[Rfam]
RNA sequence: UUUUUUAGGGAAAAUUUGGCCUUCUCAAAAGGGGAGGCCAGGGAACUUUCCU
Dot-bracket structure: .......((((((.(((((((((((......)))))))))))....))))))
Shown here is a 52-nucleotide RNA from Lentivirus humimdef1, a member of the family "HIV Ribosomal frameshift signal". A reference for the family is Biswas et al. (2004), "The human immunodeficiency virus type 1 ribosomal frameshifting site is an invariant sequence determinant and an important target for antiviral therapy", J Virol. The family's consensus secondary structure is taken from published work. The family's RNA type in Rfam is frameshift element. Its family is annotated with viral translational frameshifting in the Gene Ontology. About the family: This family represents the HIV Ribosomal frameshift signal.